[Rfam]
RNA sequence: GGGGGCGUUAUGGAUUCGACAGGCAUAGUUUGAGCUUGAGUAGCGUUCUGUAGGUUACGGCUACAAUAAAACGUUACAGUUAAAUAUAACUGCAAACAAUAAAAACAACACUUUCGCUUUAGCAGCUUAAUAACCUGUUAGCGAAGAUCCUCCUGGCAUCGCCCAUGUGCUCAGGUAAGGGUCUCAAACUUAGUGGGAUACGUUAGCUCUUUCCGUCUGUAAGUGCUAAAAGAGAUCAUCAGACUAGCAAGAUAAGACGCCUGUCAUGUGGCAGCUUAUCAAGUGAAAUUCCAAUAGCAUGACUAUGAGCGUAGAAGCUUUUGUGGCAAUAUGUUUGGACAGGGGUUCGACUCCCCUCGCCUCCAUUU
Numbered sequence: 001g002g003g004g005g006c007g008u009u010a011u012g013g014a015u016u017c018g019a020c021a022g023g024c025a026u027a028g029u030u031u032g033a034g035c036u037u038g039a040g041u042a043g044c045g046u047u048c049u050g051u052a053g054g055u056u057a058c059g060g061c062u063a064c065a066a067u068a069a070a071a072c073g074u075u076a077c078a079g080u081u082a083a084a085u086a087u088a089a090c091u092g093c094a095a096a097c098a099a100u101a102a103a104a105a106c107a108a109c110a111c112u113u114u115c116g117c118u119u120u121a122g123c124a125g126c127u128u129a130a131u132a133a134c135c136u137g138u139u140a141g142c143g144a145a146g147a148u149c150c151u152c153c154u155g156g157c158a159u160c161g162c163c164c165a166u167g168u169g170c171u172c173a174g175g176u177a178a179g180g181g182u183c184u185c186a187a188a189c190u191u192a193g194u195g196g197g198a199u200a201c202g203u204u205a206g207c208u209c210u211u212u213c214c215g216u217c218u219g220u221a222a223g224u225g226c227u228a229a230a231a232g233a234g235a236u237c238a239u240c241a242g243a244c245u246a247g248c249a250a251g252a253u254a255a256g257a258c259g260c261c262u263g264u265c266a267u268g269u270g271g272c273a274g275c276u277u278a279u280c281a282a283g284u285g286a287a288a289u290u291c292c293a294a295u296a297g298c299a300u301g302a303c304u305a306u307g308a309g310c311g312u313a314g315a316a317g318c319u320u321u322u323g324u325g326g327c328a329a330u331a332u333g334u335u336u337g338g339a340c341a342g343g344g345g346u347u348c349g350a351c352u353c354c355c356c357u358c359g360c361c362u363c364c365a366u367u368u
Base pairs, nucleotide, nucleotide: 001364002363003362004361005360006359007358020337021336022335023334024333025332026331027330029328034324035323038320039319040318041317044311045310046309047308048307049065050064051063052062053061054077055076057074058073059072119141120140121139122138123137124136125135146183147182148181149180150179151178152175153174154173155172156170157169158168159167162197163196164195165194166193203229204228205227206226207225209223210222211221215245218242247284248283251280252279253278254277255276256275259272260271261270263303264302265301266300267297341357342356343355344354345353
This 368-nucleotide sequence from Vagococcus zengguangii belongs to the Rfam family "transfer-messenger RNA".
Bacterial tmRNA, also known as 10Sa RNA or SsrA, is named for its dual tRNA and mRNA-like properties. Its role is to liberate the mRNA from a stalled ribosome.
The literature on the family includes a 1996 paper in RNA by Williams and Bartel, "Phylogenetic analysis of tmRNA secondary structure".
Taxonomically the source falls in Vagococcus (Bacteria, Bacillati, Bacillota, Lactobacillales).